Shown here is a 92-nucleotide RNA sequence from Cocos nucifera, a member of the family "Small nucleolar RNA R11/Z151". Rfam links the family to the GO terms RNA processing and nucleolus. For this family Rfam cites "Identification of 66 box C/D snoRNAs in Arabidopsis thaliana: extensive gene duplications generated multiple isoforms predicting new ribosomal RNA 2'-O-methylation sites" (Barneche et al., J Mol Biol, 2001). The match comes from Rfam's covariance-model search (63 bits). Pairs were carried over by alignment from the consensus structure, which was predicted with PFOLD. By type it is a C/D-box small nucleolar RNA.

[Rfam]
RNA sequence: UGGCUGAUGAUGAUUGAUCUCAAAGAUCUCAGUAGAUUUCAGUGUGGCCAUAUUGAUGAUCUGAUCUCAUGUUGUUACACACAAUGAAGCCC
Numbered sequence: 001u002g003g004c005u006g007a008u009g010a011u012g013a014u015u016g017a018u019c020u021c022a023a024a025g026a027u028c029u030c031a032g033u034a035g036a037u038u039u040c041a042g043u044g045u046g047g048c049c050a051u052a053u054u055g056a057u058g059a060u061c062u063g064a065u066c067u068c069a070u071g072u073u074g075u076u077a078c079a080c081a082c083a084a085u086g087a088a089g090c091c092c
Stems, first nucleotide, its partner, number of pairs: 002091004